[Rfam]
A member of the RNA family "SAH (S-adenosyl-L-homocysteine) riboswitch aptamer" from Hydrogenophaga sp. BPS33, 89 nucleotides long. Taxonomically the source falls in Hydrogenophaga (Bacteria, Betaproteobacteria, Burkholderiales, Comamonadaceae). On this family, see Wang et al., Mol Cell 2008: "Riboswitches that sense S-adenosylhomocysteine and activate genes involved in coenzyme recycling". Rfam links the family to the GO terms regulation of gene expression and S-adenosylhomocysteine metabolic process. It scores 60 bits against the family's covariance model.
RNA sequence: CGAUCCGAGGAGCGUUGCAGCGCCCCCACCGACACCAUCGGCAGCGGGGCGUGAGGCUCGGACCAUCCAUGCAACCACGCUCAUCCACA
Number, nucleotide and partner (000 for none) at each position: 001c000002g064003a000004u062005c061006c060007g059008a058009g000010g000011a000012g000013c000014g000015u000016u000017g000018c000019a000020g000021c051022g050023c049024c048025c047026c046027c000028a000029c000030c000031g000032a000033c000034a000035c000036c000037a000038u000039c000040g000041g000042c000043a000044g000045c000046g026047g025048g024049g023050c022051g021052u000053g000054a000055g000056g000057c000058u008059c007060g006061g005062a004063c000064c002065a000066u000067c000068c000069a000070u000071g000072c000073a000074a000075c000076c000077a000078c000079g000080c000081u000082c000083a000084u000085c000086c000087a000088c000089a000